[Rfam]
RNA sequence: AAUACAUCUAUGAUGAGAAGAAGUAUAAUCUUAACUCCAGAGAGUAAGCAUUUAGCUGAGAGCUUACAUGAGAUUAGAAGACAUCUCGGAGAGAACUCUUGAAAUAGUAGUAGGGAGUAACGUUUAAGCCCCGUUAUCGGCUAAAGAAGAGCAAAGACUUAAGGUCUUUGAAACAGGGUGGCAACACGGUUAUAUCGUCCCUGAC
Dot-bracket structure: ......((......((((.......((((((............((((((............))))))...)))))).......))))...))..((((((............))))))..((.........))..................(((((((.....)))))))....((((.......(((((...)))))))))...
Numbered sequence: 001a002a003u004a005c006a007u008c009u010a011u012g013a014u015g016a017g018a019a020g021a022a023g024u025a026u027a028a029u030c031u032u033a034a035c036u037c038c039a040g041a042g043a044g045u046a047a048g049c050a051u052u053u054a055g056c057u058g059a060g061a062g063c064u065u066a067c068a069u070g071a072g073a074u075u076a077g078a079a080g081a082c083a084u085c086u087c088g089g090a091g092a093g094a095a096c097u098c099u100u101g102a103a104a105u106a107g108u109a110g111u112a113g114g115g116a117g118u119a120a121c122g123u124u125u126a127a128g129c130c131c132c133g134u135u136a137u138c139g140g141c142u143a144a145a146g147a148a149g150a151g152c153a154a155a156g157a158c159u160u161a162a163g164g165u166c167u168u169u170g171a172a173a174c175a176g177g178g179u180g181g182c183a184a185c186a187c188g189g190u191u192a193u194a195u196c197g198u199c200c201c202u203g204a205c
Stems, first nucleotide, its partner, number of pairs: 007092002015087004026076006044067006095118006121133002152170007175202004186198005